This 146-nucleotide sequence from Vulpes vulpes belongs to the Rfam family "U12 minor spliceosomal RNA". The organism belongs to Vulpes, within Eukaryota. Rfam classes the family as a spliceosomal small nuclear RNA.

[Rfam]
RNA sequence: AUGCCUUAAACUUAGGAGUAAGCAAAAUAAUGACUCAGUGUGACGCCUAAAUCCUCACUGCUAAUGUGAGACAAAUUUUUGAGCUCUACAAGGUUUCUGCUAAAGUGAUCCACCUAAUUUGUGGGAUGCCUGGGAGUCGCAACCUG
Numbered sequence: 001a002u003g004c005c006u007u008a009a010a011c012u013u014a015g016g017a018g019u020a021a022g023c024a025a026a027a028u029a030a031u032g033a034c035u036c037a038g039u040g041u042g043a044c045g046c047c048u049a050a051a052u053c054c055u056c057a058c059u060g061c062u063a064a065u066g067u068g069a070g071a072c073a074a075a076u077u078u079u080u081g082a083g084c085u086c087u088a089c090a091a092g093g094u095u096u097c098u099g100c101u102a103a104a105g106u107g108a109u110c111c112a113c114c115u116a117a118u119u120u121g122u123g124g125g126a127u128g129c130c131u132g133g134g135a136g137u138c139g140c141a142a143c144c145u146g
Stems, first nucleotide, its partner, number of pairs: 005022004032053002035050001037048002054070005091145005097139001100134002103131001105129003109125005